[Rfam]
RNA sequence: AGGAUAUCAUCAUAUACUGUAAGUUUGCGACAAGAUACUACAGUAUAGAUGAUGUACUAG
Dot-bracket structure: ((.((((((((.(((((((((.(((........)))..))))))))))))))))).))..
The record is a 60-nucleotide RNA sequence from Canis lupus, which matches "mir-144 microRNA precursor family" in Rfam.
Lineage of the source: Eukaryota > Bilateria > Sarcopterygii > Theria > Canis lupus.
The sequence is in the family's curated seed alignment.